[Rfam]
RNA sequence: UUAAGUUAACCACAUAAAAUAUGUCAUCUCCUUUAAUUAUACGCAUCAUCUCAAGAAAUGUGUGGGGGUUGUAUGACUUGUUGAGGUGAAUGCUUUAAUUGAAGGAGCUUAUAUAUUUUAUGUGGUUAACUUAACC
Numbered sequence: 001u002u003a004a005g006u007u008a009a010c011c012a013c014a015u016a017a018a019a020u021a022u023g024u025c026a027u028c029u030c031c032u033u034u035a036a037u038u039a040u041a042c043g044c045a046u047c048a049u050c051u052c053a054a055g056a057a058a059u060g061u062g063u064g065g066g067g068g069u070u071g072u073a074u075g076a077c078u079u080g081u082u083g084a085g086g087u088g089a090a091u092g093c094u095u096u097a098a099u100u101g102a103a104g105g106a107g108c109u110u111a112u113a114u115a116u117u118u119u120a121u122g123u124g125g126u127u128a129a130c131u132u133a134a135c136c
Stems, first nucleotide, its partner, number of pairs: 001134024028107012041095001043093004048087004
MIR7993 microRNA precursor family: a 136-nucleotide RNA sequence from Solanum tuberosum. Its family is annotated with RISC complex and miRNA-mediated post-transcriptional gene silencing in the Gene Ontology.